[Rfam]
RNA sequence: CCCUUGUCCCCUCUCUCCCAACCCUUGUACCAGUGUGGUAACUGGAAGUCCUGGUACAGAGGUUGGCUGACAGGGAGGUGUGG
Numbered sequence: 001c002c003c004u005u006g007u008c009c010c011c012u013c014u015c016u017c018c019c020a021a022c023c024c025u026u027g028u029a030c031c032a033g034u035g036u037g038g039u040a041a042c043u044g045g046a047a048g049u050c051c052u053g054g055u056a057c058a059g060a061g062g063u064u065g066g067c068u069g070a071c072a073g074g075g076a077g078g079u080g081u082g083g
Stems, first nucleotide, its partner, number of pairs: 010074003014070002017066002023059001026058007
RNA: mir-150 microRNA precursor family
Organism: Microcaecilia unicolor